[Rfam]
RNA sequence: UCGAAGCUCCAUCUACAAAUGGAUAAAAUUUCGUUUUUAGUUUAGUGUAUACGAGUUAUUGAAAGUAAAGGGGCAGUCCCAGUUUCUUGACAGAACAAGAAAUGGGUUCUUGCUCCUUU
Dot-bracket structure: .......(((((......)))))...........................................((.(((..((...(.(.(((((........))))).).)...))..))).)).
The record is a 119-nucleotide RNA from Bougainvillea spectabilis, which matches "Plastid-psbA-1 3UTR RNA" in Rfam. The family's RNA type in Rfam is cis-regulatory element. Pairs were carried over by alignment from the consensus structure, which was predicted with LocARNA.